[Rfam]
RNA: MIR8565 microRNA precursor family
RNA sequence: UCCCUACCUAUGUGUGUAGGACCCCAAAUGAUUACCAUUAAAGUUGGUACGGAUCUCUAAAAAAGUUAUCAUAUAGGUGUGAGACUUGACUUUUUUAUAGAUCUGUGUCAAAUUUAAUGGUGAUCUUUUGAGAUCCUACACACAUAGGUGGGAG
Numbered sequence: 001u002c003c004c005u006a007c008c009u010a011u012g013u014g015u016g017u018a019g020g021a022c023c024c025c026a027a028a029u030g031a032u033u034a035c036c037a038u039u040a041a042a043g044u045u046g047g048u049a050c051g052g053a054u055c056u057c058u059a060a061a062a063a064a065g066u067u068a069u070c071a072u073a074u075a076g077g078u079g080u081g082a083g084a085c086u087u088g089a090c091u092u093u094u095u096u097a098u099a100g101a102u103c104u105g106u107g108u109c110a111a112a113u114u115u116a117a118u119g120g121u122g123a124u125c126u127u128u129u130g131a132g133a134u135c136c137u138a139c140a141c142a143c144a145u146a147g148g149u150g151g152g153a154g
Base pairs, nucleotide, nucleotide: 003152004151005150006149007148008147009146010145011144012143013142015140016139017138018137019136020135021134023132025130026129027128028127030125031124032123034121035120036119037118038117039116040115041114042113044111045110046109047108048107049106050105051104052103053102054101055100056099058097059096060095061094062093063092064091065090066089067088068087069082070081071080072079073078